Shown here is a 71-nucleotide sequence from Silurus meridionalis, a member of the family "miR-430 microRNA precursor family". The organism belongs to Silurus, within Eukaryota. The family is grouped with related families in Rfam's "mir-290 clan". The base pairs follow the family's consensus structure, which was predicted with RNAalifold. A search with the family's covariance model found it, with a score of 51 bits.
[Rfam]
RNA sequence: AUCACUACCCCAACAAUGGUCCUUGACCUGUCUGAAUUAUUUGGUAAGUGCUAUUUGUUAGGGUAGUUUUC
Numbered sequence: 001a002u003c004a005c006u007a008c009c010c011c012a013a014c015a016a017u018g019g020u021c022c023u024u025g026a027c028c029u030g031u032c033u034g035a036a037u038u039a040u041u042u043g044g045u046a047a048g049u050g051c052u053a054u055u056u057g058u059u060a061g062g063g064u065a066g067u068u069u070u071c
Stems, first nucleotide, its partner, number of pairs: 004067007013058004018052003023048002026045003